[Rfam]
RNA: S. aureus tsr25 small RNA
RNA sequence: UAAUAGUAAUUGAAAAUGAUUAUCAAUCACAAAUGAGACAUCCCCCCCACAUUUCGUUCUUAAUUGGAUUGGUCAUUUUCGAUUUAUCCCCUUUUAUAUAUGCCCGUAAAUACUGACGUUACACUAUAUAGUAACGUGACAUACUUAACCGAUUCUGCUUAGUUGAGAAUCGGUUUUUU
Numbered sequence: 001u002a003a004u005a006g007u008a009a010u011u012g013a014a015a016a017u018g019a020u021u022a023u024c025a026a027u028c029a030c031a032a033a034u035g036a037g038a039c040a041u042c043c044c045c046c047c048c049a050c051a052u053u054u055c056g057u058u059c060u061u062a063a064u065u066g067g068a069u070u071g072g073u074c075a076u077u078u079u080c081g082a083u084u085u086a087u088c089c090c091c092u093u094u095u096a097u098a099u100a101u102g103c104c105c106g107u108a109a110a111u112a113c114u115g116a117c118g119u120u121a122c123a124c125u126a127u128a129u130a131g132u133a134a135c136g137u138g139a140c141a142u143a144c145u146u147a148a149c150c151g152a153u154u155c156u157g158c159u160u161a162g163u164u165g166a167g168a169a170u171c172g173g174u175u176u177u178u179u
Stems, first nucleotide, its partner, number of pairs: 005087001008084001010082011024071004030066002035061003038057002091115001093110005123137002127133001143179001147175010